[Rfam]
RNA sequence: UAAAAGGGUCGGUUGGCUAAAUAUGCCACGUUCAUCCUAGAUUGGUGAAUGCUGUAUGGCUAUCAAGACAUAUGGCCGACAUAAUUUAUGGAACUCAAAAGGGUUGGUUCUCUUGGCCGACCCUCUAA
Dot-bracket structure: .......(((((.((((.......))))((((((((.......))))))))(((((((..........)))))))))))).................(.((((((((((.....)))))))))).)..
Numbered sequence: 001u002a003a004a005a006g007g008g009u010c011g012g013u014u015g016g017c018u019a020a021a022u023a024u025g026c027c028a029c030g031u032u033c034a035u036c037c038u039a040g041a042u043u044g045g046u047g048a049a050u051g052c053u054g055u056a057u058g059g060c061u062a063u064c065a066a067g068a069c070a071u072a073u074g075g076c077c078g079a080c081a082u083a084a085u086u087u088a089u090g091g092a093a094c095u096c097a098a099a100a101g102g103g104u105u106g107g108u109u110c111u112c113u114u115g116g117c118c119g120a121c122c123c124u125c126u127a128a
Stems, first nucleotide, its partner, number of pairs: 008080005014028004029051008052075007098126001100124010

The family of this 128-nucleotide sequence from Vigna angularis is "U11 spliceosomal RNA". Its Rfam clan is "U1 clan". A search with the family's covariance model found it, with a score of 77 bits. The organism belongs to Vigna angularis, within Eukaryota.